Glycine riboswitch aptamer: a 117-nucleotide RNA sequence from Gordonia sihwensis.
RNA sequence: CGACGUCUCUGGAAAGUGGCGGGUGCGCGCACCCGCCCGCCCACGGUGAAAGGCAUCGGUCCGCCGCUGCCGAAUCUCUCAGGCGCUGCGUUCGUGCGGCAUGACAGAGGGGGAGGG
Numbered sequence: 001c002g003a004c005g006u007c008u009c010u011g012g013a014a015a016g017u018g019g020c021g022g023g024u025g026c027g028c029g030c031a032c033c034c035g036c037c038c039g040c041c042c043a044c045g046g047u048g049a050a051a052g053g054c055a056u057c058g059g060u061c062c063g064c065c066g067c068u069g070c071c072g073a074a075u076c077u078c079u080c081a082g083g084c085g086c087u088g089c090g091u092u093c094g095u096g097c098g099g100c101a102u103g104a105c106a107g108a109g110g111g112g113g114a115g116g117g
Base pairs, nucleotide, nucleotide: 004112006110007109008108009107010106011105018037019036020035021034022033023032039084040083041082043079046078048076052071053070054069055068
Dot-bracket structure: ...(.((((((......((((((........)))))).(((.(..(.(...((((............))))....).))..)))....................)))))).).....
The match comes from Rfam's covariance-model search (37 bits).